Background: Rfam assigns this 112-nucleotide sequence from Pseudactinobacillus ducreyi to the family "Alpha operon ribosome binding site". The family's RNA type in Rfam is cis-regulatory element. About the family: The bacterial alpha operon ribosome binding site is surrounded by this complex pseudoknotted structure. Translation of the mRNA produces 4 ribosomal protein products, one of which (S4) acts as a translational repressor by binding to the nested pseudoknot region. The mechanism of repression is thought to involve a conformational switch in the pseudoknot region and ribosome entrapment. The base pairs follow the family's consensus structure, which is taken from published work. The literature on the family includes a 2001 paper in J Biol Chem by Schlax et al., "Translational repression of the Escherichia coli alpha operon mRNA: importance of an mRNA conformational switch and a ternary entrapment complex".
[Rfam]
Nucleotides: 112
Base pairs, nucleotide, nucleotide: 004054005053006052007051008050009049010048011047012046013045023096024095025094030087031086032085033084038111039110040109
Number, partner (000 for none) and nucleotide at each position: 001000u002000c003000c004054u005053g006052a007051u008050a009049u010048a011047c012046u013045g014000u015000u016000u017000g018000a019000g020000u021000a022000u023096c024095c025094u026000g027000a028000a029000a030087c031086g032085g033084g034000c035000u036000u037000u038111u039110c040109a041000a042000g043000a044000u045013c046012a047011g048010u049009a050008u051007a052006u053005c054004a055000u056000a057000a058000a059000c060000u061000u062000a063000a064000a065000u066000a067000a068000u069000a070000g071000g072000a073000g074000u075000g076000c077000a078000u079000a080000g081000u082000g083000g084033c085032c086031c087030g088000u089000a090000u091000u092000g093000c094025a095024g096023g097000c098000a099000u100000u101000a102000a103000c104000a105000u106000u107000c108000c109040u110039g111038a112000u